The record is a 523-nucleotide part of an RNA from Morococcus cerebrosus, which matches "Bacterial large subunit ribosomal RNA" in Rfam. A search with the family's covariance model found it, with a score of 2865 bits. Lineage of the source: Bacteria > Pseudomonadati > Betaproteobacteria > Neisseriales > Morococcus.
[Rfam]
RNA sequence: GAAUAAGUGCAUCAGGUGGAUGCCUUGGCGAUGAUAGGCGAUGAAGGACGUGUAAGCCUGCGAAAAGCGUGGGGGAGCUGGCAAUAAAGCUAUGAUCCCGCGGUGUCCGAAUGGGGAAACCCACUGCAUUCUGUGCAGUAUCCUAAGUUGAAUACAUAGACUUAGAGAAGCGAACCCGGAGAACUGAACCAUCUAAGUACCCGGAGGAAAAGAAAUCAACCGAGAUUCCGCAAGUAGUGGCGAGCGAACGCGGAGGAGCCUGUACGUAAUAACUGUCGAGAUAGAAGAACAAGCUGGGAAGCUUGACCAUAGUGGGUGAUAGUCCCGUAUUCGAAAUCUCAACAGUGGUACUAAGCGUACGAAAAGUAGGGCGGGACACGUGAAAUCCUGUCUGAAUAUGGGGGGACCAUCCUCCAAGGCUAAAUACUCAUCAUCGACCGAUAGUGAACCAGUACCGUGAGGGAAAGGCGAAAAGAACCCCGGGAGGGGAGUGAAAUAGAACCUGAAACCUGAUGCAUACAAA
Numbered sequence: 001g002a003a004u005a006a007g008u009g010c011a012u013c014a015g016g017u018g019g020a021u022g023c024c025u026u027g028g029c030g031a032u033g034a035u036a037g038g039c040g041a042u043g044a045a046g047g048a049c050g051u052g053u054a055a056g057c058c059u060g061c062g063a064a065a066a067g068c069g070u071g072g073g074g075g076a077g078c079u080g081g082c083a084a085u086a087a088a089g090c091u092a093u094g095a096u097c098c099c100g101c102g103g104u105g106u107c108c109g110a111a112u113g114g115g116g117a118a119a120c121c122c123a124c125u126g127c128a129u130u131c132u133g134u135g136c137a138g139u140a141u142c143c144u145a146a147g148u149u150g151a152a153u154a155c156a157u158a159g160a161c162u163u164a165g166a167g168a169a170g171c172g173a174a175c176c177c178g179g180a181g182a183a184c185u186g187a188a189c190c191a192u193c194u195a196a197g198u199a200c201c202c203g204g205a206g207g208a209a210a211a212g213a214a215a216u217c218a219a220c221c222g223a224g225a226u227u228c229c230g231c232a233a234g235u236a237g238u239g240g241c242g243a244g245c246g247a248a249c250g251c252g253g254a255g256g257a258g259c260c261u262g263u264a265c266g267u268a269a270u271a272a273c274u275g276u277c278g279a280g281a282u283a284g285a286a287g288a289a290c291a292a293g294c295u296g297g298g299a300a301g302c303u304u305g306a307c308c309a310u311a312g313u314g315g316g317u318g319a320u321a322g323u324c325c326c327g328u329a330u331u332c333g334a335a336a337u338c339u340c341a342a343c344a345g346u347g348g349u350a351c352u353a354a355g356c357g358u359a360c361g362a363a364a365a366g367u368a369g370g371g372c373g374g375g376a377c378a379c380g381u382g383a384a385a386u387c388c389u390g391u392c393u394g395a396a397u398a399u400g401g402g403g404g405g406a407c408c409a410u411c412c413u414c415c416a417a418g419g420c421u422a423a424a425u426a427c428u429c430a431u432c433a434u435c436g437a438c439c440g441a442u443a444g445u446g447a448a449c450c451a452g453u454a455c456c457g458u459g460a461g462g463g464a465a466a467g468g469c470g471a472a473a474a475g476a477a478c479c480c481c482g483g484g485a486g487g488g489g490a491g492u493g494a495a496a497u498a499g500a501a502c503c504u505g506a507a508a509c510c511u512g513a514u515g516c517a518u519a520c521a522a523a
Base pairs, nucleotide, nucleotide: 007518008517009516010515011514012513013512014511015510016509022503023468024467027439028438029436030435031434032433033432034431035430036428037427038171039170046108047107048106049062050061051060068102069101070100071099072098073097074096077090078089079088113122114121115120123139124138125137126136127135128134129133141168142167143165144164145163146162147161148160149159175206176204177203178202179201186193187192216223217222226424227254228253229252230251231250237245238244257421258420259419260418263359264358265357266356270348272346273345274344275343276342278340279339280338281337282336284332285331286330290305291304292303293302294301308312314326315325316324369393370392371391372390373389374388375387376386400415401414402413403412404411455462456461478489479488480487481486